RNA: Purine riboswitch aptamer
Nucleotides: 098
Stems, first nucleotide, its partner, number of pairs: 019083002022080004029047006056074006
Number, partner (000 for none) and nucleotide at each position: 001000c002000a003000a004000u005000u006000u007000a008000c009000u010000a011000a012000a013000c014000a015000a016000g017000u018000g019083g020082c021000c022080u023079a024078u025077a026000u027000a028000a029047u030046g031045c032044c033043g034042u035000a036000a037000u038000a039000c040000g041000g042034a043033c044032g045031g046030c047029a048000g049000u050000c051000u052000c053000u054000a055000c056074c057073c058072g059071g060070a061069g062000c063000c064000a065000u066000a067000a068000a069061c070060u071059c072058u073057g074056g075000a076000c077025u078024a079023u080022a081000a082020g083019c084000a085000a086000u087000u088000u089000g090000a091000a092000c093000a094000u095000a096000a097000g098000c